[Rfam]
RNA: SAM riboswitch aptamer (S box leader)
Organism: Lysinibacillus alkalisoli
RNA sequence: UUCUUAUCAAGAGAAGCUGAGGGAAAGGCCCUAUGACGCUUCAGCAACCUCUCCACAUGGAGAAAGGUGCUAAUUCCUGUAAGAUAAGAG
Numbered sequence: 001u002u003c004u005u006a007u008c009a010a011g012a013g014a015a016g017c018u019g020a021g022g023g024a025a026a027g028g029c030c031c032u033a034u035g036a037c038g039c040u041u042c043a044g045c046a047a048c049c050u051c052u053c054c055a056c057a058u059g060g061a062g063a064a065a066g067g068u069g070c071u072a073a074u075u076c077c078u079g080u081a082a083g084a085u086a087a088g089a090g
Stems, first nucleotide, its partner, number of pairs: 001090008013042005021031003026078003043071004048067002050063004075082001